[Rfam]
RNA sequence: UAAUCUAUUUGGGGCAAAUUCUCAUCUAGUUAUGGCAAACUCACACAUGACUACUUAGAAUCAUCUGUUAUCAUAAGUCCAACUACAUCACUAUUCCAUCAUAAACCAUCACGUGAGUUAAUAAUAGCAA
Dot-bracket structure: ....(((((....((..((.....(.(.(((........................................................................))).)..).))..))....)))))...